Rfam assigns this 83-nucleotide sequence from Pirellula sp. SH-Sr6A to the family "Group II catalytic intron D1-D4-1". Taxonomically the source falls in Pirellula (Bacteria, Pseudomonadati, Planctomycetia, Pirellulaceae).
RNA sequence: CUAGUUGCCUCGCAAGAGGUUACGAUGUCACCGUAGAAGUCAGCAGAGGCCAUAGUAGUCGGAGGCUUUAGCUGACGAAGGGC
Numbered sequence: 001c002u003a004g005u006u007g008c009c010u011c012g013c014a015a016g017a018g019g020u021u022a023c024g025a026u027g028u029c030a031c032c033g034u035a036g037a038a039g040u041c042a043g044c045a046g047a048g049g050c051c052a053u054a055g056u057a058g059u060c061g062g063a064g065g066c067u068u069u070a071g072c073u074g075a076c077g078a079a080g081g082g083c
Base pairs, nucleotide, nucleotide: 001027004023005022007020008019009018010017011016040047041046049083050082051081058076059075060074061073062072

Source information
It scores 63 bits against the family's covariance model.